RNA: Small nucleolar RNA SNORA58
RNA sequence: GAGCAUACCCGUAGACCUCGUCUGACUGUGCUUGUGGCCAGGCGAGGGGGACAGUGUAUGCAAGAGUAACUUGGAGUUUGUGCCAGGUCUAGCCAGCUAAAUCAGUAGCUGGAUAAAUUGCAGCACUCCCAACAUUC
Numbered sequence: 001g002a003g004c005a006u007a008c009c010c011g012u013a014g015a016c017c018u019c020g021u022c023u024g025a026c027u028g029u030g031c032u033u034g035u036g037g038c039c040a041g042g043c044g045a046g047g048g049g050g051a052c053a054g055u056g057u058a059u060g061c062a063a064g065a066g067u068a069a070c071u072u073g074g075a076g077u078u079u080g081u082g083c084c085a086g087g088u089c090u091a092g093c094c095a096g097c098u099a100a101a102u103c104a105g106u107a108g109c110u111g112g113a114u115a116a117a118u119u120g121c122a123g124c125a126c127u128c129c130c131a132a133c134a135u136u137c
Stems, first nucleotide, its partner, number of pairs: 003061006016047009073129004078125001081122003093112005